Overview:
Shown here is a 106-nucleotide RNA from Macrococcus lamae, a member of the family "SAM riboswitch aptamer (S box leader)". Its family is annotated with regulation of gene expression in the Gene Ontology. Lineage of the source: Bacteria > Bacillati > Bacillota > Bacilli > Macrococcus. A search with the family's covariance model found it, with a score of 70 bits. Rfam describes the family as follows. The SAM riboswitch is found upstream of a number of genes which code for proteins involved in methionine or cysteine biosynthesis in Gram-positive bacteria.
[Rfam]
RNA sequence: AAAUUAUCAAGAGAGAUUGAGGGAUAUGGCCCGACGACAUCUCAGCAGCGGACUCAUUCACUGAGCACUGUGCUAAAUCCAUCAAGCUCGGCUUGGCAGAUAAAGA
Numbered sequence: 001a002a003a004u005u006a007u008c009a010a011g012a013g014a015g016a017u018u019g020a021g022g023g024a025u026a027u028g029g030c031c032c033g034a035c036g037a038c039a040u041c042u043c044a045g046c047a048g049c050g051g052a053c054u055c056a057u058u059c060a061c062u063g064a065g066c067a068c069u070g071u072g073c074u075a076a077a078u079c080c081a082u083c084a085a086g087c088u089c090g091g092c093u094u095g096g097c098a099g100a101u102a103a104a105g106a
Stems, first nucleotide, its partner, number of pairs: 004103005013043005021032003026082004044074004049070002053065003078098001083095005